[Rfam]
RNA sequence: AUAUAUUUUCUGGGGGCCACAGUAGGAGUGUUCUUGUCGUGACCCCUGUCAGAUUUGAUCUAAAUCUGCAGUCCUACU
Numbered sequence: 001a002u003a004u005a006u007u008u009u010c011u012g013g014g015g016g017c018c019a020c021a022g023u024a025g026g027a028g029u030g031u032u033c034u035u036g037u038c039g040u041g042a043c044c045c046c047u048g049u050c051a052g053a054u055u056u057g058a059u060c061u062a063a064a065u066c067u068g069c070a071g072u073c074c075u076a077c078u
Stems, first nucleotide, its partner, number of pairs: 013046004018041001021078007028040003050068007
A member of the RNA family "Mammalian CPEB3 ribozyme" from Polypterus senegalus, 78 nucleotides long. The source organism's lineage runs through Eukaryota, Chordata, Gnathostomata, Teleostomi and Polypterus.